Source information: The family of this 147-nucleotide sequence from Aspergillus carbonarius is "A. fumigatus sRNA Afu_254". It scores 83 bits against the family's covariance model. Lineage of the source: Eukaryota > Ascomycota > leotiomyceta > Eurotiomycetes > Aspergillus carbonarius. The family's RNA type in Rfam is small RNA. On this family, see Jochl et al., Nucleic Acids Res 2008: "Small ncRNA transcriptome analysis from Aspergillus fumigatus suggests a novel mechanism for regulation of protein synthesis".
RNA sequence: UUCUCAAGCGAAAGCAAAGCCUCUAAACUCCAAACCACAUUUUUACCGGUUUCCAACCAACCUCUGCCAAAAUGUCUCCCUGCUCCUGCAACUGCUGCUCUGGCAACUGCGCCAGCUGCUCCUGCUCCUCCUGCAGCGUGAGUAUCC
Numbered sequence: 001u002u003c004u005c006a007a008g009c010g011a012a013a014g015c016a017a018a019g020c021c022u023c024u025a026a027a028c029u030c031c032a033a034a035c036c037a038c039a040u041u042u043u044u045a046c047c048g049g050u051u052u053c054c055a056a057c058c059a060a061c062c063u064c065u066g067c068c069a070a071a072a073u074g075u076c077u078c079c080c081u082g083c084u085c086c087u088g089c090a091a092c093u094g095c096u097g098c099u100c101u102g103g104c105a106a107c108u109g110c111g112c113c114a115g116c117u118g119c120u121c122c123u124g125c126u127c128c129u130c131c132u133g134c135a136g137c138g139u140g141a142g143u144a145u146c147c
Stems, first nucleotide, its partner, number of pairs: 081105004088098003109134003118125002